[Rfam]
Rfam assigns this 108-nucleotide RNA from Plutella xylostella to the family "mir-8517 microRNA precursor family". The family's consensus secondary structure was predicted with RNAalifold. Its family is annotated with RISC complex and miRNA-mediated post-transcriptional gene silencing in the Gene Ontology.
RNA sequence: UCACUGAACGGAUCAACCACUGAACCGUUCUGUCCCUCUCUGACAGAGAACAAUUUGUUCUCUGACAGAGAGCGACAAAACAGCUCAAUAGCCAAUCCGUCCAGCAAC
Numbered sequence: 001u002c003a004c005u006g007a008a009c010g011g012a013u014c015a016a017c018c019a020c021u022g023a024a025c026c027g028u029u030c031u032g033u034c035c036c037u038c039u040c041u042g043a044c045a046g047a048g049a050a051c052a053a054u055u056u057g058u059u060c061u062c063u064g065a066c067a068g069a070g071a072g073c074g075a076c077a078a079a080a081c082a083g084c085u086c087a088a089u090a091g092c093c094a095a096u097c098c099g100u101c102c103a104g105c106a107a108c
Stems, first nucleotide, its partner, number of pairs: 001107001004104003011097003017091001019089001021087003025083001027081002029069006049059004